The family of this 107-nucleotide RNA sequence from Streptococcus massiliensis is "PyrR binding site".
Lineage of the source: Bacteria > Bacillati > Bacillota > Streptococcaceae > Streptococcus.
By type it is a cis-regulatory element.
Pairs were carried over by alignment from the consensus structure, which is taken from published work.
RNA sequence: UAAACCUUUAAGCAAGUCCAGAGAGGCAGGCAAGGGGCACAGAUAAAAAAGGGUUCAGUGAGCCUAAUUUUUGUGAAACCUUGCUAGUUGGCAAGGUUUUUAUUUUA
Numbered sequence: 001u002a003a004a005c006c007u008u009u010a011a012g013c014a015a016g017u018c019c020a021g022a023g024a025g026g027c028a029g030g031c032a033a034g035g036g037g038c039a040c041a042g043a044u045a046a047a048a049a050a051g052g053g054u055u056c057a058g059u060g061a062g063c064c065u066a067a068u069u070u071u072u073g074u075g076a077a078a079c080c081u082u083g084c085u086a087g088u089u090g091g092c093a094a095g096g097u098u099u100u101u102a103u104u105u106u107a
Base pairs, nucleotide, nucleotide: 005035006034007033008032013030016027017026018025045071046070047069048068051065052064053063054062055061056060075100076099077098078097079096080095081094082093083092084091085090